Description:
This 108-nucleotide RNA from Dokdonella fugitiva belongs to the Rfam family "Glycine riboswitch aptamer".
RNA sequence: CUCUGGAGAGAUCGGCCACCCGGCGACGGGCGAAGCGCCGGCGCCGAAGGGGCACGAAGCCGCCGCCCGCAAGGGCCGGCUUCCAAACUCUCAGGCAAAAGGACAGAG
Numbered sequence: 001c002u003c004u005g006g007a008g009a010g011a012u013c014g015g016c017c018a019c020c021c022g023g024c025g026a027c028g029g030g031c032g033a034a035g036c037g038c039c040g041g042c043g044c045c046g047a048a049g050g051g052g053c054a055c056g057a058a059g060c061c062g063c064c065g066c067c068c069g070c071a072a073g074g075g076c077c078g079g080c081u082u083c084c085a086a087a088c089u090c091u092c093a094g095g096c097a098a099a100a101g102g103a104c105a106g107a108g
Stems, first nucleotide, its partner, number of pairs: 001108005012041004043096003046092002050090003056083007